[Rfam]
RNA sequence: CCACGUCCCGACGCACUCCCCCCGGCGCCGGGACCUUCCCAGAGCCGGGCUUCGGCGCCUUCCCCCGGGCGUCGGAGUCCGGCUCCAUC
Numbered sequence: 001c002c003a004c005g006u007c008c009c010g011a012c013g014c015a016c017u018c019c020c021c022c023c024g025g026c027g028c029c030g031g032g033a034c035c036u037u038c039c040c041a042g043a044g045c046c047g048g049g050c051u052u053c054g055g056c057g058c059c060u061u062c063c064c065c066c067g068g069g070c071g072u073c074g075g076a077g078u079c080c081g082g083c084u085c086c087a088u089c
Stems, first nucleotide, its partner, number of pairs: 005034006012027003042085010053074008